This 63-nucleotide sequence from Grantiella picta belongs to the Rfam family "Small nucleolar RNA Z39". Taxonomically the source falls in Grantiella (Eukaryota, Vertebrata, Teleostomi, Tetrapoda). Pairs were carried over by alignment from the consensus structure, which was predicted with PFOLD.
RNA sequence: GUACAGAUGAUGAGCAUUGCGGUAUGAGGGGCAGCAAUGAUACUGUAAACGCUUGCUGAUGUA
Numbered sequence: 001g002u003a004c005a006g007a008u009g010a011u012g013a014g015c016a017u018u019g020c021g022g023u024a025u026g027a028g029g030g031g032c033a034g035c036a037a038u039g040a041u042a043c044u045g046u047a048a049a050c051g052c053u054u055g056c057u058g059a060u061g062u063a
Stems, first nucleotide, its partner, number of pairs: 002063004012054004020045006
Dot-bracket structure: .((((......((((....((((((..............)))))).....)))).....))))
On this family, see Chen et al., Nucleic Acids Res 2003: "The high diversity of snoRNAs in plants: identification and comparative study of 120 snoRNA genes from Oryza sativa". The family has 5 seed sequences and 935 matches in Rfam 15.1. Rfam links the family to the GO terms RNA processing and nucleolus.